[Rfam]
RNA sequence: CCCACCCAGCAGCAGCGCAGAAGUAAGGGUGGCGAUACCACACCAGGCCAUCCUUAUUUCUGCGCUGCUGCUGGGUGGG
Numbered sequence: 001c002c003c004a005c006c007c008a009g010c011a012g013c014a015g016c017g018c019a020g021a022a023g024u025a026a027g028g029g030u031g032g033c034g035a036u037a038c039c040a041c042a043c044c045a046g047g048c049c050a051u052c053c054u055u056a057u058u059u060c061u062g063c064g065c066u067g068c069u070g071c072u073g074g075g076u077g078g079g
Stems, first nucleotide, its partner, number of pairs: 001079003005075003011069008020059001022058008
Dot-bracket structure: (((.(((...((((((((.(.((((((((.....................)))))))))..))))))))...))).)))